[Rfam]
RNA sequence: GGUAGUGCUAAAGGUCUAUUUCCUAGGCUAUACACAGGGGACUGGUUCCUUGUUCUUCUGCCUAGGGGAAAGUCCCCAGACCUUGUGCAGAGAAUGCCGUGUGCAUAUGCACAUAGACAUUAGUCUGUUUCUCACUGUUAAAACCCGCCAAAAAGCAAAUCUCUCUGAGCACCAUGGUGUGGAGGCGUCAUCCAUCAGCUUCACUAGUUACACAGGCAUGUCUUAGGGCACCAACCACACGGGGCUCAGUCUCAGUGAAGC
Dot-bracket structure: .((..((((.(..((((.(..(((((((........(((((....))))).........)))))))....[[.[[[[.........(((.....))).((((((....)))))).(((.....(((((...(((............((......(..(...)..)...))....))).)))))...)))......................).)))).(((......)))..........]]]]]].....).))))..))

A member of the RNA family "RNase MRP" from Otolemur garnettii, 261 nucleotides long. The base pairs follow the family's consensus structure, which is taken from published work. Rfam's curators write: RNase MRP is an enzymatically active ribonucleoprotein with two distinct roles in eukaryotes. In mitochondria it plays a direct role in the initiation of mitochondrial DNA replication.